[Rfam]
RNA sequence: AUGGAAGUGAUGAUUAUUUAUCCAAAUGAUCAAAGCUGAAAUAACUGAGCAAAUGGUAUCUCUGUGUUACACAGAGACGCCUAAUCAGCUCUAUCUCAUCCAU
Numbered sequence: 001a002u003g004g005a006a007g008u009g010a011u012g013a014u015u016a017u018u019u020a021u022c023c024a025a026a027u028g029a030u031c032a033a034a035g036c037u038g039a040a041a042u043a044a045c046u047g048a049g050c051a052a053a054u055g056g057u058a059u060c061u062c063u064g065u066g067u068u069a070c071a072c073a074g075a076g077a078c079g080c081c082u083a084a085u086c087a088g089c090u091c092u093a094u095c096u097c098a099u100c101c102a103u
Stems, first nucleotide, its partner, number of pairs: 001103005
Rfam assigns this 103-nucleotide sequence from Malus baccata to the family "Small nucleolar RNA Z103". Pairs were carried over by alignment from the consensus structure, which was predicted with PFOLD. The family's RNA type in Rfam is C/D-box small nucleolar RNA.